RNA sequence: AUUAUCUGAGGACAGAACGGGCAUCUGUCGCCCUUUGUUGGAGAUGUAGGAAUGUCACCUACCUAUAAU
Numbered sequence: 001a002u003u004a005u006c007u008g009a010g011g012a013c014a015g016a017a018c019g020g021g022c023a024u025c026u027g028u029c030g031c032c033c034u035u036u037g038u039u040g041g042a043g044a045u046g047u048a049g050g051a052a053u054g055u056c057a058c059c060u061a062c063c064u065a066u067a068a069u
Stems, first nucleotide, its partner, number of pairs: 001069005008063001011029005020056004031041001046062005
A member of the RNA family "skipping-rope RNA", 69 nucleotides long. The family's RNA type in Rfam is small RNA. The family's consensus secondary structure is taken from published work. The sequence is in the family's curated seed alignment.